A member of the RNA family "SAM (S-adenosyl methionine) riboswitch aptamer" from Xylanimonas oleitrophica, 116 nucleotides long. Gene Ontology terms of the family: regulation of gene expression and S-adenosylmethionine metabolic process. Rfam describes the family as follows. SAM-IV is a mRNA element that regulates gene expression via direct sensing of S-adenosylmethionine (SAM or AdoMet). SAM-IV riboswitches share conserved nucleotide positions with the previously described SAM-I riboswitches sequence analysis and molecular recognition experiments suggest that SAM-I and SAM-IV riboswitches share similar ligand binding sites, but have different scaffolds. The family's consensus secondary structure is taken from published work. The organism belongs to Xylanimonas, within Bacteria.
RNA sequence: GGUCAUGAGCUCCGACGCGAAGCCCCGGCUGGUCGGACGGCAACCCCCCGCGCGGGUGGGUGCCCCGGGUGAGGACCAGGUUCGCCGCCGGCCGGCGGCUGGACAACACGCGAGCC
Numbered sequence: 001g002g003u004c005a006u007g008a009g010c011u012c013c014g015a016c017g018c019g020a021a022g023c024c025c026c027g028g029c030u031g032g033u034c035g036g037a038c039g040g041c042a043a044c045c046c047c048c049c050g051c052g053c054g055g056g057u058g059g060g061u062g063c064c065c066c067g068g069g070u071g072a073g074g075a076c077c078a079g080g081u082u083c084g085c086c087g088c089c090g091g092c093c094g095g096c097g098g099c100u101g102g103a104c105a106a107c108a109c110g111c112g113a114g115c116c
Stems, first nucleotide, its partner, number of pairs: 001077004009038001011037006021030002039064003044060003048055002080104004084099006